[Rfam]
RNA sequence: ACUCAACGUUAUACCUUUAUGAAGGGUGAGUCUUAAUUGCAAAAGCAAGCCGUCUUAGAACGGAUCCUUGACCAAUUAGUUAGCCUUAAUCUUGUUUAAAGGAGUUU
Numbered sequence: 001a002c003u004c005a006a007c008g009u010u011a012u013a014c015c016u017u018u019a020u021g022a023a024g025g026g027u028g029a030g031u032c033u034u035a036a037u038u039g040c041a042a043a044a045g046c047a048a049g050c051c052g053u054c055u056u057a058g059a060a061c062g063g064a065u066c067c068u069u070g071a072c073c074a075a076u077u078a079g080u081u082a083g084c085c086u087u088a089a090u091c092u093u094g095u096u097u098a099a100a101g102g103a104g105u106u107u
Stems, first nucleotide, its partner, number of pairs: 023087005034078005043069003050063004

This 107-nucleotide RNA from Lutibacter profundi belongs to the Rfam family "6S-Flavo RNA". It is annotated as a small RNA. The source organism's lineage runs through Bacteria, Pseudomonadati, Bacteroidota, Flavobacteriaceae and Lutibacter.